skipping-rope RNA: an 89-nucleotide RNA sequence from Sporomusa ovata. It is annotated as a small RNA. It is one of the family's seed sequences.
[Rfam]
RNA sequence: GACUUUCAGAGGAUGGAACUGGCAGCCUUCGCCGGAUAACCCGAAUGGGUUUGAGUAGGAGAUGCGGGAUAGUCACCCCGCCUAAAGUC
Numbered sequence: 001g002a003c004u005u006u007c008a009g010a011g012g013a014u015g016g017a018a019c020u021g022g023c024a025g026c027c028u029u030c031g032c033c034g035g036a037u038a039a040c041c042c043g044a045a046u047g048g049g050u051u052u053g054a055g056u057a058g059g060a061g062a063u064g065c066g067g068g069a070u071a072g073u074c075a076c077c078c079c080g081c082c083u084a085a086a087g088u089c
Stems, first nucleotide, its partner, number of pairs: 001089006009082001012030002015027002020075004032059001038051004064081005
Dot-bracket structure: ((((((..(..((.((...[[[[..)).)).(.....((((......)))).......)....(((((...]]]].)))))).))))))